[Rfam]
RNA: Alpha operon ribosome binding site
Nucleotides: 112
Stems, first nucleotide, its partner, number of pairs: 004057005010051004024096003030087004039110002
Number, partner (000 for none) and nucleotide at each position: 001000a002000a003000a004057c005056u006055u007054g008053a009000g010051u011050g012049u013048c014000g015000g016000u017000u018000g019000g020000g021000u022000a023000u024096c025095c026094u027000a028000u029000a030087c031086g032085g033084g034000c035000u036000u037000u038000c039110c040109a041000g042000c043000a044000a045000g046000a047000u048013g049012a050011u051010a052000a053008u054007c055006a056005g057004g058000u059000u060000u061000a062000u063000u064000u065000a066000u067000a068000g069000g070000a071000g072000a073000u074000a075000u076000g077000u078000u079000a080000g081000u082000g083000g084033c085032c086031c087030g088000u089000a090000u091000c092000g093000c094026a095025g096024g097000c098000a099000u100000u101000a102000a103000c104000g105000u106000u107000c108000c109040u110039g111000a112000c